[Rfam]
RNA sequence: ACUGCGAUACAGGACUGGCAGAUCAGUGGAGUACCACAAGGACUGUAUCGUUGAUUAAGCCGACUGCCUGGGCACCGUUU
Numbered sequence: 001a002c003u004g005c006g007a008u009a010c011a012g013g014a015c016u017g018g019c020a021g022a023u024c025a026g027u028g029g030a031g032u033a034c035c036a037c038a039a040g041g042a043c044u045g046u047a048u049c050g051u052u053g054a055u056u057a058a059g060c061c062g063a064c065u066g067c068c069u070g071g072g073c074a075c076c077g078u079u080u
Base pairs, nucleotide, nucleotide: 004051005050006049007048008047009046010045011044012043015040016039017068018067019066020065021064026037027036028035029034059073060072061071